[Rfam]
RNA sequence: CGCUUGCAAUCAGACUCACUUGCGGUUGAUCAACGUUCCUUUUGGUUCGUGCACUCUGCCGUUUGUGGGCCAGCAUCAGCUGGAGCGGUGGGACAAAGACAGCAGGAAUGUGGCUCCCUUCGGGGAGUGUUAUAGCCUGUUGUGUAAUGCCACCAGCACCGGCUGAGGUCCGCGGUUCGCCUAGGAUGCUGGCUUAAUGGUUGUAAGCGACCCGUCUUGAAACACGG
Numbered sequence: 001c002g003c004u005u006g007c008a009a010u011c012a013g014a015c016u017c018a019c020u021u022g023c024g025g026u027u028g029a030u031c032a033a034c035g036u037u038c039c040u041u042u043u044g045g046u047u048c049g050u051g052c053a054c055u056c057u058g059c060c061g062u063u064u065g066u067g068g069g070c071c072a073g074c075a076u077c078a079g080c081u082g083g084a085g086c087g088g089u090g091g092g093a094c095a096a097a098g099a100c101a102g103c104a105g106g107a108a109u110g111u112g113g114c115u116c117c118c119u120u121c122g123g124g125g126a127g128u129g130u131u132a133u134a135g136c137c138u139g140u141u142g143u144g145u146a147a148u149g150c151c152a153c154c155a156g157c158a159c160c161g162g163c164u165g166a167g168g169u170c171c172g173c174g175g176u177u178c179g180c181c182u183a184g185g186a187u188g189c190u191g192g193c194u195u196a197a198u199g200g201u202u203g204u205a206a207g208c209g210a211c212c213c214g215u216c217u218u219g220a221a222a223c224a225c226g227g
Stems, first nucleotide, its partner, number of pairs: 001209012017067003022062003071191007212227004
Dot-bracket structure: ((((((((((((....(((..(((...................................)))..)))...(((((((...........................................................................................................)))))))......))))))))))))..((((........))))